[Rfam]
RNA sequence: UCAUCAUCACCAUCAUCCUGACUAGUCUUUCGGGAGGAAUGGUUUCGACUGGAAGGCAAAAAGAGUGAACUUCCAUCGGUCAUUACCAAAAAGAAUUUGAGACCCCUGGAAGAGAUUCCGGGGGUUUUUCGUUU
Numbered sequence: 001u002c003a004u005c006a007u008c009a010c011c012a013u014c015a016u017c018c019u020g021a022c023u024a025g026u027c028u029u030u031c032g033g034g035a036g037g038a039a040u041g042g043u044u045u046c047g048a049c050u051g052g053a054a055g056g057c058a059a060a061a062a063g064a065g066u067g068a069a070c071u072u073c074c075a076u077c078g079g080u081c082a083u084u085a086c087c088a089a090a091a092a093g094a095a096u097u098u099g100a101g102a103c104c105c106c107u108g109g110a111a112g113a114g115a116u117u118c119c120g121g122g123g124g125u126u127u128u129u130c131g132u133u134u
Base pairs, nucleotide, nucleotide: 008047011041012040013039017034018033019032020031021030048076050075051074052073053072054071055070096131099128100127101126102125103124104123105122106121107120108119109118110117111116
Dot-bracket structure: .......(..(((...(((((........)))))....))).....)(.((((((..............)))))))...................(..(((((((((((((....)))))))))))))..)...